[Rfam]
RNA sequence: CGUCUCCUCCAUAUCUUCACCGAUGUGGAUUCAGCCCGCCUUCGCGCGGGCUUUUUUGU
Numbered sequence: 001c002g003u004c005u006c007c008u009c010c011a012u013a014u015c016u017u018c019a020c021c022g023a024u025g026u027g028g029a030u031u032c033a034g035c036c037c038g039c040c041u042u043c044g045c046g047c048g049g050g051c052u053u054u055u056u057u058g059u
Base pairs, nucleotide, nucleotide: 008029009028010027011026012025013024014023015022033052034051035050036049037048038047039046
RNA: Betaproteobacteria toxic small RNA
Organism: Paraburkholderia sp. DHOC27